[Rfam]
RNA sequence: AUGCAUUUAAAUCAUUGGUUUUUCUACACUUUUGUAGUGUGGCCUGAGCUAGGUGCAUAAAGUAAAGGCAGUUUUGUUAGCAGAACUGUGAGGAUGGAUCCACUGGUAAAUAGCAUAAUGUGCUAUUCACCUACUAGUUCCAUCAUACAUUU
Dot-bracket structure: .(((((.....(((..((((.(.(((........))).).))))))).....))))).................................(.((((((..........((((((.......))))))...........)))))).)......
Shown here is a 152-nucleotide RNA sequence from Durio zibethinus, a member of the family "small nucleolar RNA snoR143". Rfam 15.1 lists 660 matches to the family in 212 species. The family's RNA type in Rfam is H/ACA-box small nucleolar RNA. Its family is annotated with RNA processing and nucleolus in the Gene Ontology.